[Rfam]
RNA sequence: ACAGAAAAAAAAGGGGACUGCAGCUGAAGAGUUCAUAUUGUGGCUCCUGUCCGAUUCCAACGAACCUGCAAAUUCUGUU
Numbered sequence: 001a002c003a004g005a006a007a008a009a010a011a012a013g014g015g016g017a018c019u020g021c022a023g024c025u026g027a028a029g030a031g032u033u034c035a036u037a038u039u040g041u042g043g044c045u046c047c048u049g050u051c052c053g054a055u056u057c058c059a060a061c062g063a064a065c066c067u068g069c070a071a072a073u074u075c076u077g078u079u
Stems, first nucleotide, its partner, number of pairs: 013047004018043002022079003026075003029041001031039001051068001053066001055064003
Dot-bracket structure: ............[[[[.[[..(((.((((.(.......).)]]]]]]...(.(.(((....))).).)....))).)))